[Rfam]
MIR480 microRNA precursor family: a 123-nucleotide RNA from Phtheirospermum japonicum. Lineage of the source: Eukaryota > Streptophytina > Spermatophyta > asterids > Phtheirospermum. Rfam links the family to the GO terms miRNA-mediated post-transcriptional gene silencing and RISC complex.
RNA sequence: CAAUUUUUUUAAGGUACGUGCUAAAUCCUUGAUGAUAGAAUCACCUUGUAAUGCUGAAAAUGUUAUGUUAUCACAACUUAGAAUGUAAUGUUAUUGCAAUACUUACAGGUAUCUAACGGAACU
Numbered sequence: 001c002a003a004u005u006u007u008u009u010u011a012a013g014g015u016a017c018g019u020g021c022u023a024a025a026u027c028c029u030u031g032a033u034g035a036u037a038g039a040a041u042c043a044c045c046u047u048g049u050a051a052u053g054c055u056g057a058a059a060a061u062g063u064u065a066u067g068u069u070a071u072c073a074c075a076a077c078u079u080a081g082a083a084u085g086u087a088a089u090g091u092u093a094u095u096g097c098a099a100u101a102c103u104u105a106c107a108g109g110u111a112u113c114u115a116a117c118g119g120a121a122c123u
Stems, first nucleotide, its partner, number of pairs: 004121004008116002012112001014110002018106002025104001029099003